[Rfam]
RNA: Eukaryotic large subunit ribosomal RNA, nucleotides 1 to 432
Organism: Hemibagrus wyckioides
RNA sequence: CGACCUCAGAUCAGACGAGACGACCCGCUGAAUUUAAGCAUAUUACUAAGCGGAGGAAAAGAAACUAACCAGGAUUCCCUCAGUAGCGGCGAGCGAAGAGGGAAGAGCCCAGCGCCGAAUCCCCCGUCCCCUCGCGGGCGCGGGGAAAUGUGGCGUACGGAAGUCCGCAUCGCCCGGCGCGGGCCGGGGGCCUGAGUCCUUCUGAUGGAGGCUCAGCCCGUGGACGGUGUGAGGCCGGUAACGGCCCCCGCCCCGCCGGGGCGCGGACUUCUCGGAGUCGGGUUGUUUGGGAAUGCAGCCCAAAGCGGGUGGUAAACUCCAUCUAAGGCUAAAUACCGGCACGAGACCGAUAGCGAACAAGUACCGUAAGGGAAAGUUGAAAAGAACUUUGAAGAGAGAGUUCAACAGGGCGUGAAACCGUUAAGAGGUAAA
Numbered sequence: 001c002g003a004c005c006u007c008a009g010a011u012c013a014g015a016c017g018a019g020a021c022g023a024c025c026c027g028c029u030g031a032a033u034u035u036a037a038g039c040a041u042a043u044u045a046c047u048a049a050g051c052g053g054a055g056g057a058a059a060a061g062a063a064a065c066u067a068a069c070c071a072g073g074a075u076u077c078c079c080u081c082a083g084u085a086g087c088g089g090c091g092a093g094c095g096a097a098g099a100g101g102g103a104a105g106a107g108c109c110c111a112g113c114g115c116c117g118a119a120u121c122c123c124c125c126g127u128c129c130c131c132u133c134g135c136g137g138g139c140g141c142g143g144g145g146a147a148a149u150g151u152g153g154c155g156u157a158c159g160g161a162a163g164u165c166c167g168c169a170u171c172g173c174c175c176g177g178c179g180c181g182g183g184c185c186g187g188g189g190g191c192c193u194g195a196g197u198c199c200u201u202c203u204g205a206u207g208g209a210g211g212c213u214c215a216g217c218c219c220g221u222g223g224a225c226g227g228u229g230u231g232a233g234g235c236c237g238g239u240a241a242c243g244g245c246c247c248c249c250g251c252c253c254c255g256c257c258g259g260g261g262c263g264c265g266g267a268c269u270u271c272u273c274g275g276a277g278u279c280g281g282g283u284u285g286u287u288u289g290g291g292a293a294u295g296c297a298g299c300c301c302a303a304a305g306c307g308g309g310u311g312g313u314a315a316a317c318u319c320c321a322u323c324u325a326a327g328g329c330u331a332a333a334u335a336c337c338g339g340c341a342c343g344a345g346a347c348c349g350a351u352a353g354c355g356a357a358c359a360a361g362u363a364c365c366g367u368a369a370g371g372g373a374a375a376g377u378u379g380a381a382a383a384g385a386a387c388u389u390u391g392a393a394g395a396g397a398g399a400g401u402u403c404a405a406c407a408g409g410g411c412g413u414g415a416a417a418c419c420g421u422u423a424a425g426a427g428g429u430a431a432a
Stems, first nucleotide, its partner, number of pairs: 024055001025053005035042002065072002076103005086094002106330004113155005119149001122145006160271009179256005186249007196212001198211004219223001226236002280301007307324005364371002387398004